[Rfam]
RNA sequence: AUUCGACGCUCUGGAAAGCGGCCUUGCUUCGGCAUGGCCCACCGAAGGGGUAACUCCGCGCAAGCAGGAGGAAAGCUCUCAGGUUCCGUGACAGAGGGGGUUCG
Numbered sequence: 001a002u003u004c005g006a007c008g009c010u011c012u013g014g015a016a017a018g019c020g021g022c023c024u025u026g027c028u029u030c031g032g033c034a035u036g037g038c039c040c041a042c043c044g045a046a047g048g049g050g051u052a053a054c055u056c057c058g059c060g061c062a063a064g065c066a067g068g069a070g071g072a073a074a075g076c077u078c079u080c081a082g083g084u085u086c087c088g089u090g091a092c093a094g095a096g097g098g099g100g101u102u103c104g
Base pairs, nucleotide, nucleotide: 007098009096010095011094012093013092020039021038022037023036041084042083043082044080045079048078049077050076054071055070

Shown here is a 104-nucleotide RNA sequence from Sphingomonas jeddahensis, a member of the family "Glycine riboswitch aptamer". The match comes from Rfam's covariance-model search (54 bits). Rfam 15.1 lists 9,425 matches to the family in 5,228 species.